[Rfam]
Nucleotides: 065
Stems, first nucleotide, its partner, number of pairs: 001020008041062007
Number, partner (000 for none) and nucleotide at each position: 001020g002019c003018g004017g005016a006015a007014a008013u009000g010000a011000a012000a013008g014007u015006u016005u017004c018003c019002g020001u021000u022000c023000a024000c025000u026000c027000c028000u029000c030000a031000c032000a033000c034000c035000a036000c037000a038000u039000u040000c041062c042061a043060c044059c045058u046057a047056g048000g049000c050000u051000a052000c053000g054000g055000u056047c057046u058045g059044g060043g061042u062041g063000g064000u065000u